[Rfam]
A member of the RNA family "Small nucleolar RNA SNORA5" from Bucorvus abyssinicus, 126 nucleotides long. It scores 49 bits against the family's covariance model. The organism belongs to Bucorvus, within Eukaryota. ACA5 is a member of the H/ACA class of snoRNA that guide the sites of modification of uridines to pseudouridines.

RNA sequence: CGCAGCCCCGUCAAAUUCGUCCCUGCCUCCUCCGUGGUGGGGAGCGGCCAACCGGCUGCCACAGCAACUCCUGCGGUCCCUGAGCCCCAUGUCCCCUUUCCGUGGGGACCCCGGCUGGUAAAAUCA
Numbered sequence: 001c002g003c004a005g006c007c008c009c010g011u012c013a014a015a016u017u018c019g020u021c022c023c024u025g026c027c028u029c030c031u032c033c034g035u036g037g038u039g040g041g042g043a044g045c046g047g048c049c050a051a052c053c054g055g056c057u058g059c060c061a062c063a064g065c066a067a068c069u070c071c072u073g074c075g076g077u078c079c080c081u082g083a084g085c086c087c088c089a090u091g092u093c094c095c096c097u098u099u100c101c102g103u104g105g106g107g108a109c110c111c112c113g114g115c116u117g118g119u120a121a122a123a124u125c126a
Stems, first nucleotide, its partner, number of pairs: 002059004018046002020043008074117005085107005
Its Rfam clan is "SNORA5 clan". By type it is an H/ACA-box small nucleolar RNA.